[Rfam]
RNA sequence: UGGAAUCAAAACAAUGAAAGCCCUACCUCUCUUCCAUCCUUGCGGCUCCAAUGACCGCGCCAGUGCGAAUUGCGUUACAAACACUUA
Number, nucleotide and partner (000 for none) at each position: 001u000002g000003g000004a000005a000006u000007c000008a000009a000010a000011a000012c000013a000014a000015u000016g000017a000018a000019a000020g000021c000022c000023c000024u000025a000026c000027c000028u000029c000030u000031c000032u000033u000034c000035c067036a000037u000038c000039c063040u062041u059042g058043c057044g056045g055046c000047u053048c000049c000050a000051a000052u000053g047054a000055c045056c044057g043058c042059g041060c000061c000062a040063g039064u000065g000066c000067g035068a000069a000070u000071u000072g000073c000074g000075u000076u000077a000078c000079a000080a000081a000082c000083a000084c000085u000086u000087a000
RNA: BsrC
Organism: Paenibacillus pectinilyticus